[Rfam]
RNA sequence: GCUCUGUGAUGAAGCCCAUGCGUGUCAUCUGAGCCUGACUUUCCUCUUUAGCCCAGGUAGUGUUCUACUUCCCAGGGCUGUCAAUGCAGGGGGAAGUCAUUGGCAAAGGAUCAAUUUUUAAAUCUGAGAGC
Numbered sequence: 001g002c003u004c005u006g007u008g009a010u011g012a013a014g015c016c017c018a019u020g021c022g023u024g025u026c027a028u029c030u031g032a033g034c035c036u037g038a039c040u041u042u043c044c045u046c047u048u049u050a051g052c053c054c055a056g057g058u059a060g061u062g063u064u065c066u067a068c069u070u071c072c073c074a075g076g077g078c079u080g081u082c083a084a085u086g087c088a089g090g091g092g093g094a095a096g097u098c099a100u101u102g103g104c105a106a107a108g109g110a111u112c113a114a115u116u117u118u119u120a121a122a123u124c125u126g127a128g129a130g131c
Stems, first nucleotide, its partner, number of pairs: 001131004042094006
Overview
Small nucleolar RNA SNORD10: a 131-nucleotide sequence from Octodon degus. Its family is annotated with nucleolus and RNA processing in the Gene Ontology. Pairs were carried over by alignment from the consensus structure, which was predicted with WAR.